The record is a 76-nucleotide RNA from a Lachnospiraceae bacterium, which matches "c-di-GMP-I riboswitch aptamer" in Rfam. The source organism's lineage runs through Bacteria, Bacillati, Bacillota, Clostridia and Lachnospiraceae. About the family: GEMM was predicted in a large-scale screen for bacterial structured RNA regulatory elements. The match comes from Rfam's covariance-model search (60 bits).
RNA sequence: CUACAAAGUGGGCAAACUCAUCGUGAGAUGGGGACGCAAAGCUAUAGGGGCUUGAAAAAGCCAGCCAGUUGCCAUG
Numbered sequence: 001c002u003a004c005a006a007a008g009u010g011g012g013c014a015a016a017c018u019c020a021u022c023g024u025g026a027g028a029u030g031g032g033g034a035c036g037c038a039a040a041g042c043u044a045u046a047g048g049g050g051c052u053u054g055a056a057a058a059a060g061c062c063a064g065c066c067a068g069u070u071g072c073c074a075u076g
Stems, first nucleotide, its partner, number of pairs: 012037002017032006040070004047066002049062003